[Rfam]
RNA: glmS glucosamine-6-phosphate activated ribozyme aptamer
Organism: Facklamia languida
RNA sequence: AAGAUUAGGAUAGCGCCUGACCUAACCAUGGUGACGAGGAUUGAGUCGAUCGAAAUAUUCGGCGGAUGGCUCAAGGCAGUGCAGUCUACAGAAAUAAGUUAAAGCAUGUUCCGAAAGGACUUGGACAGAGCUUAUUUCAGCACCAAAA
Numbered sequence: 001a002a003g004a005u006u007a008g009g010a011u012a013g014c015g016c017c018u019g020a021c022c023u024a025a026c027c028a029u030g031g032u033g034a035c036g037a038g039g040a041u042u043g044a045g046u047c048g049a050u051c052g053a054a055a056u057a058u059u060c061g062g063c064g065g066a067u068g069g070c071u072c073a074a075g076g077c078a079g080u081g082c083a084g085u086c087u088a089c090a091g092a093a094a095u096a097a098g099u100u101a102a103a104g105c106a107u108g109u110u111c112c113g114a115a116a117g118g119a120c121u122u123g124g125a126c127a128g129a130g131c132u133u134a135u136u137u138c139a140g141c142a143c144c145a146a147a148a
Base pairs, nucleotide, nucleotide: 020032021031022030042073043072044071045070046069050062051061052060053059074087075086076085077084091138092137093136094135095134096133097132105123106122108120109119111118112117